[Rfam]
RNA sequence: GAGGAGUGGGACAAGCUAGCUCAGAACCCAUUUCUUGCCUUUUACCAGAGAUGGCCGUGGCUUGCCCAACAUACUCCUCUUCUCAAUCUUUGGACCUUUCCAUCGACAUAGCU
Numbered sequence: 001g002a003g004g005a006g007u008g009g010g011a012c013a014a015g016c017u018a019g020c021u022c023a024g025a026a027c028c029c030a031u032u033u034c035u036u037g038c039c040u041u042u043u044a045c046c047a048g049a050g051a052u053g054g055c056c057g058u059g060g061c062u063u064g065c066c067c068a069a070c071a072u073a074c075u076c077c078u079c080u081u082c083u084c085a086a087u088c089u090u091u092g093g094a095c096c097u098u099u100c101c102a103u104c105g106a107c108a109u110a111g112c113u
Stems, first nucleotide, its partner, number of pairs: 003077004009067002012064007028054008094113001096111002099108001
Shown here is a 113-nucleotide RNA sequence from Aspergillus fumigatus, a member of the family "U5 spliceosomal RNA". It is one of the family's seed sequences. On this family, see Zwieb, Nucleic Acids Res 1997: "The uRNA database". Lineage of the source: Eukaryota > leotiomyceta > Eurotiales > Aspergillus > Aspergillus fumigatus. Rfam describes the family as follows. U5 RNA is a component of both types of known spliceosome. The precise function of this molecule is unknown, though it is known that the 5' loop is required for splice site selection and p220 binding, and that both the 3' stem-loop and the Sm site are important for Sm protein binding and cap methylation. Pairs were carried over by alignment from the consensus structure, which is taken from published work. Rfam links the family to the GO terms U5 snRNP and spliceosomal tri-snRNP complex assembly. Rfam classes the family as a spliceosomal small nuclear RNA.